[Rfam]
Glycine riboswitch aptamer: a 102-nucleotide sequence from Desulfovibrio falkowii. Lineage of the source: Bacteria > Pseudomonadati > Desulfovibrionales > Desulfovibrionaceae > Desulfovibrio. Rfam links the family to the GO term glycine biosynthetic process. The base pairs follow the family's consensus structure.
RNA sequence: GGUUAAUGCGUGAGAGAGUCUCCAGCUUUCCAAAAGCUAGGGGCACCGAAGGGGCAAAGCCGCCAGGCCGAAACUCUCAGGUAAAAGAAUCGCGCAUUCUCG
Numbered sequence: 001g002g003u004u005a006a007u008g009c010g011u012g013a014g015a016g017a018g019u020c021u022c023c024a025g026c027u028u029u030c031c032a033a034a035a036g037c038u039a040g041g042g043g044c045a046c047c048g049a050a051g052g053g054g055c056a057a058a059g060c061c062g063c064c065a066g067g068c069c070g071a072a073a074c075u076c077u078c079a080g081g082u083a084a085a086a087g088a089a090u091c092g093c094g095c096a097u098u099c100u101c102g
Base pairs, nucleotide, nucleotide: 006097007096008095009094010093011092012091013090020043021042022041023040045082046081047080048078049077052076053075054074059068